[Rfam]
Nucleotides: 139
Stems, first nucleotide, its partner, number of pairs: 019051005025046002033042002082116003085112003089108001091106001093104002128139004
Number, partner (000 for none) and nucleotide at each position: 001000a002000u003000c004000c005000u006000c007000g008000c009000a010000u011000g012000u013000g014000g015000c016000g017000a018000u019051a020050u021049c022048a023047u024000c025046g026045c027000c028000u029000a030000u031000g032000a033042g034041g035000g036000u037000c038000u039000a040000g041034c042033c043000g044000c045026g046025c047023g048022u049021g050020a051019u052000u053000a054000u055000u056000g057000c058000u059000g060000g061000u062000u063000g064000a065000a066000a067000a068000c069000u070000u071000a072000a073000c074000c075000a076000a077000u078000a079000c080000c081000c082116g083115c084114c085112g086111g087110g088000a089108c090000a091106g092000c093104u094103u095000u096000g097000c098000a099000a100000u101000a102000c103094a104093g105000u106091c107000c108089g109000g110087c111086c112085c113000u114084g115083g116082c117000a118000a119000u120000u121000u122000u123000g124000a125000u126000a127000g128139u129138c130137u131136c132000g133000u134000c135000a136131g137130a138129g139128a